[Rfam]
RNA sequence: AAUUUUUAUCUCAAAAACCACACAUACUCCGACACAUACAGCGGGGUGCCCGGUUGACAGGGGUUGCUGUAUGGGGGGUAUGGAGGCCCAAC
Number, nucleotide and partner (000 for none) at each position: 001a000002a000003u000004u000005u000006u000007u000008a000009u000010c000011u000012c000013a000014a000015a000016a000017a000018c000019c000020a000021c000022a000023c082024a081025u080026a079027c078028u077029c076030c075031g000032a000033c000034a000035c073036a072037u071038a070039c069040a068041g067042c066043g065044g000045g000046g000047u000048g064049c063050c062051c061052g000053g000054u000055u000056g000057a000058c000059a000060g000061g051062g050063g049064u048065u043066g042067c041068u040069g039070u038071a037072u036073g035074g000075g030076g029077g028078g027079u026080a025081u024082g023083g000084a000085g000086g000087c000088c000089c000090a000091a000092c000
RNA: t44 RNA
Organism: Thiohalobacter thiocyanaticus